[Rfam]
Nucleotides: 120
Base pairs, nucleotide, nucleotide: 011033012032013031014030015029016028017027018026034068035067036066037065038064046054047053048052080117081116082115083114085113086112087111088110090109091108092107093106094105
Number, partner (000 for none) and nucleotide at each position: 001000a002000u003000a004000a005000a006000a007000a008000a009000a010000u011033c012032c013031c014030u015029g016028u017027a018026g019000c020000a021000a022000a023000a024000a025000c026018c027017u028016a029015c030014a031013g032012g033011g034068u035067c036066c037065u038064u039000c040000c041000a042000a043000c044000c045000a046054u047053c048052u049000a050000a051000u052048a053047g054046g055000c056000a057000g058000a059000a060000g061000g062000u063000a064038a065037a066036g067035g068034g069000a070000g071000a072000g073000g074000a075000g076000a077000a078000a079000c080117c081116g082115g083114a084000g085113g086112a087111a088110g089000a090109a091108c092107u093106u094105a095000u096000g097000g098000g099000g100000a101000a102000a103000c104000g105094u106093a107092a108091g109090u110088c111087u112086u113085c114083u115082c116081c117080g118000c119000g120000g
A member of the RNA family "ylbH leader" from Cytobacillus kochii, 120 nucleotides long. It scores 106 bits against the family's covariance model. Rfam's curators write: This family is a putative regulatory RNA structure that is found upstream of the ylbH gene in B. subtilis and related low GC Gram-positive bacteria. The base pairs follow the family's consensus structure. Rfam links the family to the GO term regulation of gene expression.